[Rfam]
RNA sequence: UGCGCAAGCACACCGCAGACAGGAGCGGGGGACCCAGGUAAGCGCCGGACAGGCCCGUCGAGGCGGGCCGCCCCCGGCUAGGGGUGAAGUCGUGUGGGAGCACACACGGCCGGGCACUCAUUGGCCCGAACCCGACAGCUCACCUCGCAGGCGUCGGUGAGAAGUGAA
Numbered sequence: 001u002g003c004g005c006a007a008g009c010a011c012a013c014c015g016c017a018g019a020c021a022g023g024a025g026c027g028g029g030g031g032a033c034c035c036a037g038g039u040a041a042g043c044g045c046c047g048g049a050c051a052g053g054c055c056c057g058u059c060g061a062g063g064c065g066g067g068c069c070g071c072c073c074c075c076g077g078c079u080a081g082g083g084g085u086g087a088a089g090u091c092g093u094g095u096g097g098g099a100g101c102a103c104a105c106a107c108g109g110c111c112g113g114g115c116a117c118u119c120a121u122u123g124g125c126c127c128g129a130a131c132c133c134g135a136c137a138g139c140u141c142a143c144c145u146c147g148c149a150g151g152c153g154u155c156g157g158u159g160a161g162a163a164g165u166g167a168a
Stems, first nucleotide, its partner, number of pairs: 001153003009023001025148006035081001082133003090109007112127004